[Rfam]
RNA sequence: AGGGCACGCCGGACGGCUGCGGCGGGGGAGACAACCCGUCGAGGAAAGUCCGGACACCACAGGGCAUGGUGGUCGGCGCAAGCCGACCCGGGGAAACCCGCGGGAAAGUGCCACAGAGACAUACCGCCGAUGGCGGGGGCGCACGUGCACCCCGCACAGGCAAGGGUGAAAAGGUGCGGUAAGAGCGCACCGGCGUCACGGCGACGUGGCGGCCAGGCAAACCCCACCAGGUGCAAGGCCAAGCAGGACCGCUCGCAGGCUGCCCGCCGAGGUCCAGGUCGGCCGCUCAGAUGGAUGGUCGUCCACGACAAGAUCCGGCUUACAGGCGUGCUACGGCG
Numbered sequence: 001a002g003g004g005c006a007c008g009c010c011g012g013a014c015g016g017c018u019g020c021g022g023c024g025g026g027g028g029a030g031a032c033a034a035c036c037c038g039u040c041g042a043g044g045a046a047a048g049u050c051c052g053g054a055c056a057c058c059a060c061a062g063g064g065c066a067u068g069g070u071g072g073u074c075g076g077c078g079c080a081a082g083c084c085g086a087c088c089c090g091g092g093g094a095a096a097c098c099c100g101c102g103g104g105a106a107a108g109u110g111c112c113a114c115a116g117a118g119a120c121a122u123a124c125c126g127c128c129g130a131u132g133g134c135g136g137g138g139g140c141g142c143a144c145g146u147g148c149a150c151c152c153c154g155c156a157c158a159g160g161c162a163a164g165g166g167u168g169a170a171a172a173g174g175u176g177c178g179g180u181a182a183g184a185g186c187g188c189a190c191c192g193g194c195g196u197c198a199c200g201g202c203g204a205c206g207u208g209g210c211g212g213c214c215a216g217g218c219a220a221a222c223c224c225c226a227c228c229a230g231g232u233g234c235a236a237g238g239c240c241a242a243g244c245a246g247g248a249c250c251g252c253u254c255g256c257a258g259g260c261u262g263c264c265c266g267c268c269g270a271g272g273u274c275c276a277g278g279u280c281g282g283c284c285g286c287u288c289a290g291a292u293g294g295a296u297g298g299u300c301g302u303c304c305a306c307g308a309c310a311a312g313a314u315c316c317g318g319c320u321u322a323c324a325g326g327c328g329u330g331c332u333a334c335g336g337c338g
Stems, first nucleotide, its partner, number of pairs: 003332008011323001012303007020041007046321003050318005055233004062265004067229005072087005088102001089100004103224002108222002110218003124165002126161003131156002173191006193213001194211007237284004246275005258268003
Dot-bracket structure: ..((((((((((((((((.(((((((........)))))))....[[[.[[[[[((((...[[[[.((((((((((......)))))(((((....)))).)((...(((((...........(((((..((......................))..)))..)).......((((((.......)))))).((((((((....))))))).)..)))..)))))))))))))...((((.....(((((.......(((.]]]])))..))))).....))))............)))))))..........]]]]]]]].).))))))))......